Rfam assigns this 102-nucleotide RNA from Pseudovibrio exalbescens to the family "TPP riboswitch aptamer (THI element)". A search with the family's covariance model found it, with a score of 64 bits. Taxonomically the source falls in Pseudovibrio (Bacteria, Pseudomonadota, Hyphomicrobiales, Stappiaceae).
RNA sequence: CUAAUCUCAUGGGGGUGCCACGUCGGCUGAGAGGUCUGAGCGACCAACCCCUUGAACCUGAUCCGGCUUGCACCGGCGGAGGGAAUUGGGAUGAUGCUGAAA
Numbered sequence: 001c002u003a004a005u006c007u008c009a010u011g012g013g014g015g016u017g018c019c020a021c022g023u024c025g026g027c028u029g030a031g032a033g034g035u036c037u038g039a040g041c042g043a044c045c046a047a048c049c050c051c052u053u054g055a056a057c058c059u060g061a062u063c064c065g066g067c068u069u070g071c072a073c074c075g076g077c078g079g080a081g082g083g084a085a086u087u088g089g090g091a092u093g094a095u096g097c098u099g100a101a102a
Base pairs, nucleotide, nucleotide: 006090007089008088009087011051012050013049014048017027018026019025034044035043036042057082058081059080063076064075065074066073